[Rfam]
Nucleotides: 088
Base pairs, nucleotide, nucleotide: 001088002087003086004085005084008081011026012025013024014023015022016021027046028044029043030042031041032040048062049061050060051059052058066080067079068078069077
Number, partner (000 for none) and nucleotide at each position: 001088g002087g003086a004085a005084g006000u007000u008081g009000a010000u011026g012025g013024g014023g015022u016021c017000u018000g019000g020000u021016g022015g023014c024013c025012u026011c027046c028044u029043c030042g031041g032040u033000c034000u035000u036000c037000a038000a039000a040032a041031c042030c043029g044028a045000u046027g047000u048062g049061a050060g051059c052058c053000g054000a055000g056000a057000a058052g059051g060050c061049u062048u063000u064000g065000g066080c067079a068078g069077g070000u071000u072000c073000g074000a075000u076000u077069c078068c079067u080066g081008c082000c083000u084005c085004u086003u087002c088001c

The family of this 88-nucleotide RNA from Aeromonas salmonicida is "Selenocysteine transfer RNA". Pairs were carried over by alignment from the consensus structure, which is taken from published work.